[Rfam]
RNA sequence: AAAUAAGAUUGUUUUUCUAUCUCCGACCAAUAAUACAAUGACACGUAAAAAAAUUAUCUUAUGUGUUAUUACAUUAUUGGCCAGAGAUAGCAAAAAGUGAUAUUC
Numbered sequence: 001a002a003a004u005a006a007g008a009u010u011g012u013u014u015u016u017c018u019a020u021c022u023c024c025g026a027c028c029a030a031u032a033a034u035a036c037a038a039u040g041a042c043a044c045g046u047a048a049a050a051a052a053a054u055u056a057u058c059u060u061a062u063g064u065g066u067u068a069u070u071a072c073a074u075u076a077u078u079g080g081c082c083a084g085a086g087a088u089a090g091c092a093a094a095a096a097g098u099g100a101u102a103u104u105c
Stems, first nucleotide, its partner, number of pairs: 002104004012095004017090004022085002025082001027080008037070012050057001

Shown here is a 105-nucleotide RNA sequence from Prunus dulcis, a member of the family "MIR6274 microRNA precursor family". Gene Ontology terms of the family: miRNA-mediated post-transcriptional gene silencing and RISC complex. The organism belongs to Prunus, within Eukaryota.